A member of the RNA family "mir-932 microRNA precursor family" from Diatraea saccharalis, 73 nucleotides long.
Rfam 15.1 lists 136 matches to the family in 136 species.
RNA sequence: CGAGACCUCAAUUCCGUAGUGCAUUGCAGUGUAUCCGUACUCCCUGCAAGCAGUGCGGAAGUGAGGUUGAGGC
Number, nucleotide and partner (000 for none) at each position: 001c000002g000003a000004g000005a000006c066007c065008u064009c063010a062011a000012u000013u059014c058015c057016g056017u055018a000019g000020u052021g051022c050023a000024u049025u048026g047027c046028a045029g000030u000031g000032u000033a000034u000035c000036c000037g000038u000039a000040c000041u000042c000043c000044c000045u028046g027047c026048a025049a024050g022051c021052a020053g000054u000055g017056c016057g015058g014059a013060a000061g000062u010063g009064a008065g007066g006067u000068u000069g000070a000071g000072g000073c000